RNA sequence: GCAGACUCACUCUGCACCCGGCUGCAGCUCCAGGCGGGCGCUUUUUCGUCUGCUAGAGAAACCCUCCAGGCUGCUGUGGCCACCUGGACCUGUCCAGGGUGAUGCAGCUGCCCGGGGACACGGCG
Numbered sequence: 001g002c003a004g005a006c007u008c009a010c011u012c013u014g015c016a017c018c019c020g021g022c023u024g025c026a027g028c029u030c031c032a033g034g035c036g037g038g039c040g041c042u043u044u045u046u047c048g049u050c051u052g053c054u055a056g057a058g059a060a061a062c063c064c065u066c067c068a069g070g071c072u073g074c075u076g077u078g079g080c081c082a083c084c085u086g087g088a089c090c091u092g093u094c095c096a097g098g099g100u101g102a103u104g105c106a107g108c109u110g111c112c113c114g115g116g117g118a119c120a121c122g123g124c125g
Stems, first nucleotide, its partner, number of pairs: 001053006014041002017038004022033003065116003069112003073108006081101005
RNA: Small nucleolar RNA SNORA77
Organism: Phyllostomus discolor